[Rfam]
RNA sequence: AUACUUAUGUUUCGGGGAGAUACCAUGAUUAUCAAAGUGGUUCUCCCAGGGUGAGGCUCAUCCACUGCACUCUGGGUGUUCUGACUCCUGCGAAUUCCCCAAAUGUGGGAAAUUUGAUUGUAUGAUUUGUCAUAUUCAGGGACGACAUUCAUGCUCUCCCUAU
Numbered sequence: 001a002u003a004c005u006u007a008u009g010u011u012u013c014g015g016g017g018a019g020a021u022a023c024c025a026u027g028a029u030u031a032u033c034a035a036a037g038u039g040g041u042u043c044u045c046c047c048a049g050g051g052u053g054a055g056g057c058u059c060a061u062c063c064a065c066u067g068c069a070c071u072c073u074g075g076g077u078g079u080u081c082u083g084a085c086u087c088c089u090g091c092g093a094a095u096u097c098c099c100c101a102a103a104u105g106u107g108g109g110a111a112a113u114u115u116g117a118u119u120g121u122a123u124g125a126u127u128u129g130u131c132a133u134a135u136u137c138a139g140g141g142a143c144g145a146c147a148u149u150c151a152u153g154c155u156c157u158c159c160c161u162a163u
Stems, first nucleotide, its partner, number of pairs: 013120002015047006022041005048089004053085001055082002059078005091116003095111002098108002138161005144155001146153002
Dot-bracket structure: ............((((((((.(((((..........)))))))))))((((.(.((..(((((..........)))))..))..))))).(((.((.((.......)).))..)))..)).................(((((.(.((....)).).)))))..
U1 spliceosomal RNA: a 163-nucleotide sequence from Sciurus carolinensis. NCBI's taxonomy places the organism under Eukaryota, Opisthokonta, Craniata, Theria, Sciurus. About the family: U1 is a small nuclear RNA (snRNA) component of the spliceosome (involved in pre-mRNA splicing). On this family, see Kretzner et al., Proc Natl Acad Sci U S A 1990: "Saccharomyces cerevisiae U1 small nuclear RNA secondary structure contains both universal and yeast-specific domains". The family's RNA type in Rfam is spliceosomal small nuclear RNA. The family is grouped with related families in Rfam's "U1 clan".